[Rfam]
RNA sequence: AUUGCUAGGUCAUAUGGUCAGUCUACUUUUAGAGUAAUUGUGAAACUGUUUUCCAAAGUAGCUGUACCAUUUGCACUCCCUGUGGCAAU
Number, nucleotide and partner (000 for none) at each position: 001a089002u088003u087004g086005c085006u084007a081008g080009g079010u000011c073012a072013u000014a070015u069016g068017g067018u066019c064020a063021g062022u000023c061024u060025a059026c058027u057028u056029u055030u000031a000032g054033a000034g052035u000036a050037a049038u048039u000040g046041u045042g000043a000044a000045a041046c040047u000048g038049u037050u036051u000052u034053c000054c032055a029056a028057a027058g026059u025060a024061g023062c021063u020064g019065u000066a018067c017068c016069a015070u014071u000072u012073g011074c000075a000076c000077u000078c000079c009080c008081u007082g000083u000084g006085g005086c004087a003088a002089u001
This 89-nucleotide sequence from Pongo pygmaeus belongs to the Rfam family "mir-562 microRNA precursor family".
Rfam links the family to the GO terms miRNA-mediated post-transcriptional gene silencing and RISC complex.
On this family, see Strozzi et al., Anim Genet 2009: "Annotation of 390 bovine miRNA genes by sequence similarity with other species".